[Rfam]
RNA sequence: UCCCCCGCGGCACCUCCCUGACGCGGGUACCCAUCGACGACCGUUCGAUGGGACGUUAUCCCCGUUGCGCGUCUGGCGACGGGGUUUUUUUU
Numbered sequence: 001u002c003c004c005c006c007g008c009g010g011c012a013c014c015u016c017c018c019u020g021a022c023g024c025g026g027g028u029a030c031c032c033a034u035c036g037a038c039g040a041c042c043g044u045u046c047g048a049u050g051g052g053a054c055g056u057u058a059u060c061c062c063c064g065u066u067g068c069g070c071g072u073c074u075g076g077c078g079a080c081g082g083g084g085u086u087u088u089u090u091u092u
Base pairs, nucleotide, nucleotide: 004027005026006025007024008023009022030052031051032050034048035047036046060084061083062082063081064080065079066078067077
Background: This 92-nucleotide sequence from Ralstonia solanacearum belongs to the Rfam family "Burkholderia RNA 7 (anti-hemB)". Taxonomically the source falls in Ralstonia solanacearum (Bacteria, Pseudomonadati, Pseudomonadota, Ralstonia). Rfam describes the family as follows. This RNA motif was identified by computational search in b-proteobacteria Burkholderia. Co-purified with Hfq, expression confirmed by Northern blot. It is annotated as a small RNA. Rfam links the family to the GO terms protein binding and bacterial biofilm matrix. The base pairs follow the family's consensus structure, which is taken from published work. The literature on the family includes a 2007 paper in Nucleic Acids Res by Weinberg et al., "Identification of 22 candidate structured RNAs in bacteria using the CMfinder comparative genomics pipeline". The sequence is in the family's curated seed alignment.